[Rfam]
Shown here is a 139-nucleotide RNA sequence, a member of the family "lysM-TM7 RNA".
RNA sequence: ACCUACCAAAAUUGUCGCUACGGAUAUAGCAAAACUAAUGUAGAAUAUAAUAAUCAAUUAGGUCGACAACAUAUCCUGUUCUAUUGCGAGAAGAAAGACAAUUGGGUAGAAGUAUCAGUGGUAACAUUGAUACAAGGAG
Numbered sequence: 001a002c003c004u005a006c007c008a009a010a011a012u013u014g015u016c017g018c019u020a021c022g023g024a025u026a027u028a029g030c031a032a033a034a035c036u037a038a039u040g041u042a043g044a045a046u047a048u049a050a051u052a053a054u055c056a057a058u059u060a061g062g063u064c065g066a067c068a069a070c071a072u073a074u075c076c077u078g079u080u081c082u083a084u085u086g087c088g089a090g091a092a093g094a095a096a097g098a099c100a101a102u103u104g105g106g107u108a109g110a111a112g113u114a115u116c117a118g119u120g121g122u123a124a125c126a127u128u129g130a131u132a133c134a135a136g137g138a139g
Stems, first nucleotide, its partner, number of pairs: 003109005008103001013100004022076006079092004112133003116129005